[Rfam]
RNA sequence: CUGUCCAGCCACCAACUCUUGCUCCUCUCUCUAGAGGUUCAAUAGAGAGAGGGGGCUUGGGGUGGACGUAAAUCAGACUCUUACAUUAGGAGGGCUCUGUGGAGUGGUGAGCUGCCCUCAAAGGCACAAGAGAACAUU
Number, nucleotide and partner (000 for none) at each position: 001c000002u068003g067004u066005c065006c064007a063008g000009c061010c060011a000012c000013c000014a000015a000016c000017u000018c000019u000020u000021g000022c000023u000024c055025c054026u053027c051028u050029c049030u048031c047032u046033a000034g000035a000036g000037g000038u000039u000040c000041a000042a000043u000044a000045g000046a032047g031048a030049g029050a028051g027052g000053g026054g025055g024056c000057u000058u000059g000060g010061g009062g000063u007064g006065g005066a004067c003068g002069u000070a000071a000072a000073u000074c000075a000076g000077a000078c132079u131080c130081u129082u128083a000084c000085a000086u123087u122088a000089g000090g119091a118092g117093g116094g115095c114096u000097c111098u110099g000100u109101g108102g000103a000104g000105u000106g000107g000108u101109g100110a098111g097112c000113u000114g095115c094116c093117c092118u091119c090120a000121a000122a087123g086124g000125c000126a000127c000128a082129a081130g080131a079132g078133a000134a000135c000136a000137u000138u000
Source information
The family of this 138-nucleotide RNA sequence from Phrynocephalus forsythii is "Small Cajal body specific RNA 11". On this family, see Darzacq et al., EMBO J 2002: "Cajal body-specific small nuclear RNAs: a novel class of 2'-O-methylation and pseudouridylation guide RNAs". Gene Ontology terms of the family: RNA processing, nucleolus and Cajal body. It is annotated as a small Cajal body RNA.